[Rfam]
RNA sequence: GUGUUUUUCAUAGUAUUAGAUUUAAGGUUUACCAAGAAGGGUUGUCUGUGAUAGAUAGCCCUUUUAUUUUUC
Numbered sequence: 001g002u003g004u005u006u007u008u009c010a011u012a013g014u015a016u017u018a019g020a021u022u023u024a025a026g027g028u029u030u031a032c033c034a035a036g037a038a039g040g041g042u043u044g045u046c047u048g049u050g051a052u053a054g055a056u057a058g059c060c061c062u063u064u065u066a067u068u069u070u071u072c
Base pairs, nucleotide, nucleotide: 040060041059042058043057044056045055046054
Dot-bracket structure: .......................................(((((((.......)))))))............
The family of this 72-nucleotide RNA sequence from Mediterranea sp. An20 is "Bacteroidetes FopS (family of paralogous sRNAs)". Rfam's curators write: The RNA-binding protein RbpB and BTncRNA_FopS sRNA are involved in the post-transcription regulation of polysaccharide utilisation loci (PUL). For this family Rfam cites "The global RNA-binding protein RbpB is a regulator of polysaccharide utilization in Bacteroides thetaiotaomicron" (Ruttiger et al., Nat Commun, 2025). Rfam 15.1 lists 822 matches to the family in 178 species. It scores 64 bits against the family's covariance model. The family's consensus secondary structure is taken from published work. Lineage of the source: Bacteria > Bacteroidota > Bacteroidia > Bacteroidales > Mediterranea.